This 68-nucleotide RNA sequence from Flavobacterium daejeonense belongs to the Rfam family "S15-Flavobacteria ribosomal protein leader".
The source organism's lineage runs through Bacteria, Bacteroidota, Flavobacteriales, Flavobacteriaceae and Flavobacterium daejeonense.
The sequence is in the family's curated seed alignment.
Clan: Ribosomal Protein S15 Leader clan.
RNA sequence: UACUUUUGCUGCCGUCUUACAAUAACUGUAAGGCAUACAUAAAAAUCAUUUAAAAAAAUAUUAGCAUG
Numbered sequence: 001u002a003c004u005u006u007u008g009c010u011g012c013c014g015u016c017u018u019a020c021a022a023u024a025a026c027u028g029u030a031a032g033g034c035a036u037a038c039a040u041a042a043a044a045a046u047c048a049u050u051u052a053a054a055a056a057a058a059u060a061u062u063a064g065c066a067u068g
Stems, first nucleotide, its partner, number of pairs: 014034006